Rfam assigns this 98-nucleotide sequence from Nicotiana sylvestris to the family "Small nucleolar RNA Z161/Z228". NCBI's taxonomy places the organism under Eukaryota, Streptophyta, Magnoliopsida, Nicotianoideae, Nicotiana. The family's RNA type in Rfam is C/D-box small nucleolar RNA. The literature on the family includes a 2003 paper in Nucleic Acids Res by Chen et al., "The high diversity of snoRNAs in plants: identification and comparative study of 120 snoRNA genes from Oryza sativa". Rfam links the family to the GO terms RNA processing and nucleolus. A search with the family's covariance model found it, with a score of 67 bits. Pairs were carried over by alignment from the consensus structure, which was predicted with PFOLD.

RNA sequence: AAACCGAGUGAUGAUUUUGGAUUAAUAUUCUCACGACGGUCGUCUGAGGUACCUUUUGUGUACCUGACUGAUGUUAAUAUCCAAAUUUUCUGAUGGUU
Numbered sequence: 001a002a003a004c005c006g007a008g009u010g011a012u013g014a015u016u017u018u019g020g021a022u023u024a025a026u027a028u029u030c031u032c033a034c035g036a037c038g039g040u041c042g043u044c045u046g047a048g049g050u051a052c053c054u055u056u057u058g059u060g061u062a063c064c065u066g067a068c069u070g071a072u073g074u075u076a077a078u079a080u081c082c083a084a085a086u087u088u089u090c091u092g093a094u095g096g097u098u
Stems, first nucleotide, its partner, number of pairs: 001098002004095001050062003